[Rfam]
Shown here is a 162-nucleotide RNA sequence from Plectus sambesii, a member of the family "U1 spliceosomal RNA". The base pairs follow the family's consensus structure, which is taken from published work. The organism belongs to Plectus, within Eukaryota.
RNA sequence: AAACUUACCUGGCGGGGAGUAUCUCGCGAUCAUGAAGGCGAGAUCUCCAGGGCGAGGCUGGACCAUUGCACUUUGGGGACGGCUGACCUCUGUGGCAGUUCCGAACUGGAAUUGGCCAACCGCGAAAUUUUUGCGUAUUGGGAUAGCGUUCGCUCUUCCCUC
Numbered sequence: 001a002a003a004c005u006u007a008c009c010u011g012g013c014g015g016g017g018a019g020u021a022u023c024u025c026g027c028g029a030u031c032a033u034g035a036a037g038g039c040g041a042g043a044u045c046u047c048c049a050g051g052g053c054g055a056g057g058c059u060g061g062a063c064c065a066u067u068g069c070a071c072u073u074u075g076g077g078g079a080c081g082g083c084u085g086a087c088c089u090c091u092g093u094g095g096c097a098g099u100u101c102c103g104a105a106c107u108g109g110a111a112u113u114g115g116c117c118a119a120c121c122g123c124g125a126a127a128u129u130u131u132u133g134c135g136u137a138u139u140g141g142g143a144u145a146g147c148g149u150u151c152g153c154u155c156u157u158c159c160c161u162c
Stems, first nucleotide, its partner, number of pairs: 012123004016048004023042005049091004054087001056084003060080001063076002093118003096114003100110002140160004145154003